[Rfam]
RNA: Small nucleolar RNA SNORA57
RNA sequence: CCUCUUUCUGGGGGAGAUCAGGUGUGUUGUCCCUGUCCCUGUAACGUACUGAGGCAGAAGGACAGGGCGCCAGCCCUUUUGGGGUCAUGUCUUUGGUGCCGGUGGCUUCCAGUCUGCAGGUUCUAUCCUCAAGCUCUGGGUCAGGG
Numbered sequence: 001c002c003u004c005u006u007u008c009u010g011g012g013g014g015a016g017a018u019c020a021g022g023u024g025u026g027u028u029g030u031c032c033c034u035g036u037c038c039c040u041g042u043a044a045c046g047u048a049c050u051g052a053g054g055c056a057g058a059a060g061g062a063c064a065g066g067g068c069g070c071c072a073g074c075c076c077u078u079u080u081g082g083g084g085u086c087a088u089g090u091c092u093u094u095g096g097u098g099c100c101g102g103u104g105g106c107u108u109c110c111a112g113u114c115u116g117c118a119g120g121u122u123c124u125a126u127c128c129u130c131a132a133g134c135u136c137u138g139g140g141u142c143a144g145g146g
Stems, first nucleotide, its partner, number of pairs: 001054004013040002016037002021032002080138006099120002102117004